[Rfam]
RNA sequence: GAUGAUGGUGUUCAGCACCAAGGACAGGUAUGUUUUCUUGUUUUGAUGGUGUUCAGCACCAGGGACAGGUACGUUUUCUU
Numbered sequence: 001g002a003u004g005a006u007g008g009u010g011u012u013c014a015g016c017a018c019c020a021a022g023g024a025c026a027g028g029u030a031u032g033u034u035u036u037c038u039u040g041u042u043u044u045g046a047u048g049g050u051g052u053u054c055a056g057c058a059c060c061a062g063g064g065a066c067a068g069g070u071a072c073g074u075u076u077u078c079u080u
Stems, first nucleotide, its partner, number of pairs: 006061007014053007022043001024041005030035001
The family of this 80-nucleotide sequence from Branchiostoma belcheri is "mir-2060 microRNA precursor family".
The family has 7 seed sequences and 3,696 matches in Rfam 15.1.
It scores 65 bits against the family's covariance model.